[Rfam]
RAGATH-18 RNA: a 76-nucleotide RNA sequence from Bifidobacterium gallicum. The organism belongs to Bifidobacterium gallicum, within Bacteria.

RNA sequence: ACCGAGGGAGUGCCACACCAACGCGAGUAGCCCGCCAUCCCAGAUGGCUGCAAAAGCGGGCAUAAUGAACCGGUAA
Numbered sequence: 001a002c003c004g005a006g007g008g009a010g011u012g013c014c015a016c017a018c019c020a021a022c023g024c025g026a027g028u029a030g031c032c033c034g035c036c037a038u039c040c041c042a043g044a045u046g047g048c049u050g051c052a053a054a055a056g057c058g059g060g061c062a063u064a065a066u067g068a069a070c071c072g073g074u075a076a
Stems, first nucleotide, its partner, number of pairs: 001074004010063005022058003030051002034048005